[Rfam]
RNA sequence: UGGUGCUGGUACUCCUCGUGCCAGAAAAAUUAGAAAUAAUUUAUAGAAUUUCACUAUAUGCUGGAAAGUCUUAAAGCUUUAAGUACCUAAUGUAAAAAUCUUAGAGGGCUUAACAAUAGAUAAUCAGCAGGAAACCUUCUAGUCUAACUUUAAGUGAAGGCUUUAAAGGGUUCCUCAGAGACUACACGUGAAACCCCUGAAAAGGGUGAUAAUAUAGUCCAAAAAAUG
Numbered sequence: 001u002g003g004u005g006c007u008g009g010u011a012c013u014c015c016u017c018g019u020g021c022c023a024g025a026a027a028a029a030u031u032a033g034a035a036a037u038a039a040u041u042u043a044u045a046g047a048a049u050u051u052c053a054c055u056a057u058a059u060g061c062u063g064g065a066a067a068g069u070c071u072u073a074a075a076g077c078u079u080u081a082a083g084u085a086c087c088u089a090a091u092g093u094a095a096a097a098a099u100c101u102u103a104g105a106g107g108g109c110u111u112a113a114c115a116a117u118a119g120a121u122a123a124u125c126a127g128c129a130g131g132a133a134a135c136c137u138u139c140u141a142g143u144c145u146a147a148c149u150u151u152a153a154g155u156g157a158a159g160g161c162u163u164u165a166a167a168g169g170g171u172u173c174c175u176c177a178g179a180g181a182c183u184a185c186a187c188g189u190g191a192a193a194c195c196c197c198u199g200a201a202a203a204g205g206g207u208g209a210u211a212a213u214a215u216a217g218u219c220c221a222a223a224a225a226a227u228g
Stems, first nucleotide, its partner, number of pairs: 002022005008016002026040001049193004054188001059129006069120003130174002135169004141162005178220001180219005195206004